[Rfam]
RNA sequence: GGGUGCAAGGAUCGCCACCAGUCAGCGCGUUGCGCCCACUGGUGCGCUUGUC
Numbered sequence: 001g002g003g004u005g006c007a008a009g010g011a012u013c014g015c016c017a018c019c020a021g022u023c024a025g026c027g028c029g030u031u032g033c034g035c036c037c038a039c040u041g042g043u044g045c046g047c048u049u050g051u052c
Base pairs, nucleotide, nucleotide: 016044017043018042019041020040021039022038025035026034027033028032
This 52-nucleotide sequence from Rhodobacter capsulatus belongs to the Rfam family "ffh sRNA".
The family's RNA type in Rfam is small RNA.
For this family Rfam cites "Identification of candidate structured RNAs in the marine organism 'Candidatus Pelagibacter ubique'" (Meyer et al., BMC Genomics, 2009).
A search with the family's covariance model found it, with a score of 62 bits.